[Rfam]
RNA sequence: UUUUUUUUUUUUCGUCAGCAGUUAACUGCAGCCGGUUUCAAACUUCGGUAGUUAACUGUCGCAGGAGUAA
Numbered sequence: 001u002u003u004u005u006u007u008u009u010u011u012u013c014g015u016c017a018g019c020a021g022u023u024a025a026c027u028g029c030a031g032c033c034g035g036u037u038u039c040a041a042a043c044u045u046c047g048g049u050a051g052u053u054a055a056c057u058g059u060c061g062c063a064g065g066a067g068u069a070a
Stems, first nucleotide, its partner, number of pairs: 012066002015063001016061001018059012
RNA: MIR2629 microRNA precursor family
Organism: Medicago truncatula